[Rfam]
RNA sequence: UUAUGCGGAUCCUCGGCUAAAACCUGCCACAUCGUGUGGCAAACACCGAGGUCAGCACAUCCUGUGCA
Numbered sequence: 001u002u003a004u005g006c007g008g009a010u011c012c013u014c015g016g017c018u019a020a021a022a023c024c025u026g027c028c029a030c031a032u033c034g035u036g037u038g039g040c041a042a043a044c045a046c047c048g049a050g051g052u053c054a055g056c057a058c059a060u061c062c063u064g065u066g067c068a
Stems, first nucleotide, its partner, number of pairs: 011051006026040005055067004
Shown here is a 68-nucleotide RNA sequence from Bacillus sp. V59.32b, a member of the family "Bacillaceae-1 RNA". Rfam classes the family as a small RNA.